[Rfam]
RNA sequence: CUACGGUCGUUGUGAAGCGAUCGGAUGCAUGGAGAGAAGUCAGCCGAGGACAUAUUAGCCGUCCGACCAGCGGUUAAGGUC
Numbered sequence: 001c002u003a004c005g006g007u008c009g010u011u012g013u014g015a016a017g018c019g020a021u022c023g024g025a026u027g028c029a030u031g032g033a034g035a036g037a038a039g040u041c042a043g044c045c046g047a048g049g050a051c052a053u054a055u056u057a058g059c060c061g062u063c064c065g066a067c068c069a070g071c072g073g074u075u076a077a078g079g080u081c
Stems, first nucleotide, its partner, number of pairs: 001027001004023008040047002049081003058074005
Shown here is an 81-nucleotide RNA sequence from Chitinivibrio alkaliphilus, a member of the family "Group II catalytic intron D1-D4-1".
A reference for the family is Bonen and Vogel (2001), "The ins and outs of group II introns", Trends Genet.
Group II introns are found in rRNA, tRNA and mRNA of organelles in fungi, plants and protists, and also in mRNA in bacteria.
NCBI's taxonomy places the organism under Bacteria, Pseudomonadati, Fibrobacterota, Chitinivibrionia, Chitinivibrio alkaliphilus.